[Rfam]
Shown here is a 129-nucleotide RNA sequence from Tripterygium wilfordii, a member of the family "Small nucleolar RNA snoR111". Lineage of the source: Eukaryota > Tracheophyta > Euphyllophyta > Celastrales > Tripterygium. A reference for the family is Marker et al. (2002), "Experimental RNomics: identification of 140 candidates for small non-messenger RNAs in the plant Arabidopsis thaliana", Curr Biol. Rfam links the family to the GO terms RNA processing and nucleolus. The family's RNA type in Rfam is H/ACA-box small nucleolar RNA.
RNA sequence: UGUUUUGUUCGAGAGACGAUUUAAUUCUCUUGGUAGAAGAACAGUUGAGGUAUAGCAAAACAAAUGGCCGAGAUAUCGUUUCAGUCGUCAUUUCUUUGGAUUGACGAUUCGAUUGUUGCUCUUCCACAU
Numbered sequence: 001u002g003u004u005u006u007g008u009u010c011g012a013g014a015g016a017c018g019a020u021u022u023a024a025u026u027c028u029c030u031u032g033g034u035a036g037a038a039g040a041a042c043a044g045u046u047g048a049g050g051u052a053u054a055g056c057a058a059a060a061c062a063a064a065u066g067g068c069c070g071a072g073a074u075a076u077c078g079u080u081u082c083a084g085u086c087g088u089c090a091u092u093u094c095u096u097u098g099g100a101u102u103g104a105c106g107a108u109u110c111g112a113u114u115g116u117u118g119c120u121c122u123u124c125c126a127c128a129u
Stems, first nucleotide, its partner, number of pairs: 004037006011029005066125002070121003075113004084108007092100002